[Rfam]
RNA sequence: AACGUGUGAUGACAAAGGUUUCGGUCCCAGAUGAUCGCCUGAUUACUGCCCAAUGAGAUUACCUGAUGUU
Numbered sequence: 001a002a003c004g005u006g007u008g009a010u011g012a013c014a015a016a017g018g019u020u021u022c023g024g025u026c027c028c029a030g031a032u033g034a035u036c037g038c039c040u041g042a043u044u045a046c047u048g049c050c051c052a053a054u055g056a057g058a059u060u061a062c063c064u065g066a067u068g069u070u
Base pairs, nucleotide, nucleotide: 001070002069003068004067
Dot-bracket structure: ((((..............................................................))))

The family of this 70-nucleotide RNA sequence from Cyclopterus lumpus is "Small nucleolar RNA SNORD73". A search with the family's covariance model found it, with a score of 49 bits. A reference for the family is Rebane et al. (1998), "A novel snoRNA (U73) is encoded within the introns of the human and mouse ribosomal protein S3a genes", Gene.